[Rfam]
RNA: Alpha operon ribosome binding site
RNA sequence: AGAAGUAGUACUCCGCAGCGUAUCCUAGACGGGCUUUGCUGCGGCUAAUUCUUUUAUGAAACACUUUGGAGUGAAUAAUGGCCCGUAUUGCAGGCAUUAACAUUCCUGAU
Numbered sequence: 001a002g003a004a005g006u007a008g009u010a011c012u013c014c015g016c017a018g019c020g021u022a023u024c025c026u027a028g029a030c031g032g033g034c035u036u037u038g039c040u041g042c043g044g045c046u047a048a049u050u051c052u053u054u055u056a057u058g059a060a061a062c063a064c065u066u067u068g069g070a071g072u073g074a075a076u077a078a079u080g081g082c083c084c085g086u087a088u089u090g091c092a093g094g095c096a097u098u099a100a101c102a103u104u105c106c107u108g109a110u
Base pairs, nucleotide, nucleotide: 004052005051007049009047010046012044013043024094025093026092030085031084032083033082039108